[Rfam]
RNA sequence: UGACUGCAAGACGACGUGAAUGGGUCAAGGUCCACUCUUUGGGUGUUCCAGGACCCAGGAAAGUCCCCGGGCCAUUUCUGCAGAGAUGCAGGUUCGGUAACGAAUUAGCUUCACGGGCUUAAGGAGUUUAAAGCCCGUAUGGGCUUGGGCUGAGACGAGGUGUGGAGCCUAUGACACCUGCUCGGGAGCGAUAUUGGCCAGUUUGACAGUUAUUCACGUGGCCCAGUUGGGCUAACUGAACGGGGCUUAUGCUCUUGCAGUC
Numbered sequence: 001u002g003a004c005u006g007c008a009a010g011a012c013g014a015c016g017u018g019a020a021u022g023g024g025u026c027a028a029g030g031u032c033c034a035c036u037c038u039u040u041g042g043g044u045g046u047u048c049c050a051g052g053a054c055c056c057a058g059g060a061a062a063g064u065c066c067c068c069g070g071g072c073c074a075u076u077u078c079u080g081c082a083g084a085g086a087u088g089c090a091g092g093u094u095c096g097g098u099a100a101c102g103a104a105u106u107a108g109c110u111u112c113a114c115g116g117g118c119u120u121a122a123g124g125a126g127u128u129u130a131a132a133g134c135c136c137g138u139a140u141g142g143g144c145u146u147g148g149g150c151u152g153a154g155a156c157g158a159g160g161u162g163u164g165g166a167g168c169c170u171a172u173g174a175c176a177c178c179u180g181c182u183c184g185g186g187a188g189c190g191a192u193a194u195u196g197g198c199c200a201g202u203u204u205g206a207c208a209g210u211u212a213u214u215c216a217c218g219u220g221g222c223c224c225a226g227u228u229g230g231g232c233u234a235a236c237u238g239a240a241c242g243g244g245g246c247u248u249a250u251g252c253u254c255u256u257g258c259a260g261u262c
Stems, first nucleotide, its partner, number of pairs: 002262010014219006022056004030044005061248003065245004079090004091106006108189003114185001116183002119180001123178002126175001131170001133168002221232004

The family of this 262-nucleotide RNA sequence from Solanum tuberosum is "RNase MRP". The base pairs follow the family's consensus structure, which is taken from published work. Lineage of the source: Eukaryota > eudicotyledons > Pentapetalae > Solanoideae > Solanum.